Annotation: The record is a 75-nucleotide RNA from Junco hyemalis, which matches "mir-16 microRNA precursor family" in Rfam. The base pairs follow the family's consensus structure, which was predicted with PFOLD. A reference for the family is Calin et al. (2002), "Frequent deletions and down-regulation of micro- RNA genes miR15 and miR16 at 13q14 in chronic lymphocytic leukemia", Proc Natl Acad Sci U S A. Clan: mir-15 clan.
[Rfam]
RNA sequence: GUCCCGCCCUAGCAGCACGUAAAUAUUGGAGUGUCACACACCAACCCCAAUAUUGCUGUGCUGCUUCAGCGGGGC
Dot-bracket structure: (((.(((..(((((((((.(.((((((((.................)))))))))..))))))))..)))).)))

The family has 14 seed sequences and 4,705 matches in Rfam 15.1.